[Rfam]
RNA: mir-228 microRNA precursor family
Organism: Necator americanus
RNA sequence: GGAGGCCCCGCAAUGGCACUGCAUGAAUUCACGGUUGAGAUCCAAGCCGUGCAUCCAUCGGUUCCAUACCGGGUUCGUCGCCG
Numbered sequence: 001g002g003a004g005g006c007c008c009c010g011c012a013a014u015g016g017c018a019c020u021g022c023a024u025g026a027a028u029u030c031a032c033g034g035u036u037g038a039g040a041u042c043c044a045a046g047c048c049g050u051g052c053a054u055c056c057a058u059c060g061g062u063u064c065c066a067u068a069c070c071g072g073g074u075u076c077g078u079c080g081c082c083g
Base pairs, nucleotide, nucleotide: 007073008072009071010070013067014066015065016064018062019061020060021059025055026054028053030051032049033048034047036044037043